[Rfam]
RNA: Small nucleolar RNA SNORA77
RNA sequence: GCAGACUCACUCUGUUCUUUGCUGUUCACUCCAGCCUCGAACUUUUUCUGUCUGCUACAUAAACAUGCAGAAUGUAACACACACACUGUUUUUCUAAGGCUAGUGUCAUUAUGUUCUGCUACAUUACA
Numbered sequence: 001g002c003a004g005a006c007u008c009a010c011u012c013u014g015u016u017c018u019u020u021g022c023u024g025u026u027c028a029c030u031c032c033a034g035c036c037u038c039g040a041a042c043u044u045u046u047u048c049u050g051u052c053u054g055c056u057a058c059a060u061a062a063a064c065a066u067g068c069a070g071a072a073u074g075u076a077a078c079a080c081a082c083a084c085a086c087u088g089u090u091u092u093u094c095u096a097a098g099g100c101u102a103g104u105g106u107c108a109u110u111a112u113g114u115u116c117u118g119c120u121a122c123a124u125u126a127c128a
Stems, first nucleotide, its partner, number of pairs: 001055006014042004022034003067119007074109002077106003083101001086098001